[Rfam]
RNA sequence: ACAAUAACGAUACUCACAGGUGGAUCGGCACUCCUUUUAGAAAGGAGGUGCCACCAAUGACCACAUAUGAAGCUUUGACUUUAAUGUUGGCCUUUGGAACGCUUGUUUUCUUGAUAACAACAAGAAAAAAGUAACCCGCCUGCUGAGUUAGGACACUCUGGCGAAUUACUCUUCGUUUGUGGCCGAUCCAUUUACGGAAUCGUUGUUGUAAGUCACAAGUGUUAGCCGCACUUGUG
Number, nucleotide and partner (000 for none) at each position: 001a209002c208003a207004a206005u000006a204007a203008c202009g000010a200011u185012a000013c147014u146015c145016a144017c142018a141019g140020g139021u000022g136023g135024a000025u133026c000027g000028g051029c050030a049031c047032u046033c045034c044035u043036u000037u000038u000039a000040g000041a000042a000043a035044g034045g033046a032047g031048g000049u030050g029051c028052c000053a000054c000055c000056a000057a000058u000059g118060a000061c000062c000063a000064c113065a112066u000067a000068u000069g000070a000071a000072g087073c086074u000075u000076u000077g000078a000079c000080u000081u000082u000083a000084a000085u000086g073087u072088u000089g000090g000091c000092c000093u000094u000095u000096g110097g109098a108099a107100c000101g000102c000103u000104u000105g000106u000107u099108u098109u097110c096111u000112u065113g064114a000115u000116a000117a000118c059119a000120a000121c000122a000123a000124g000125a000126a000127a000128a000129a000130a000131g000132u000133a025134a000135c023136c022137c000138g000139c020140c019141u018142g017143c000144u016145g015146a014147g013148u000149u000150a000151g000152g000153a000154c000155a000156c000157u000158c000159u000160g000161g000162c000163g000164a000165a000166u000167u000168a000169c000170u000171c000172u000173u000174c000175g000176u000177u000178u000179g000180u000181g000182g000183c000184c000185g011186a000187u198188c197189c196190a000191u000192u000193u000194a000195c000196g189197g188198a187199a000200u010201c000202g008203u007204u006205g000206u004207u003208g002209u001210a000211a000212g000213u000214c236215a235216c234217a233218a232219g231220u230221g229222u228223u000224a000225g000226c000227c000228g222229c221230a220231c219232u218233u217234g216235u215236g214
RNA: BsrG
Organism: Aureibacillus halotolerans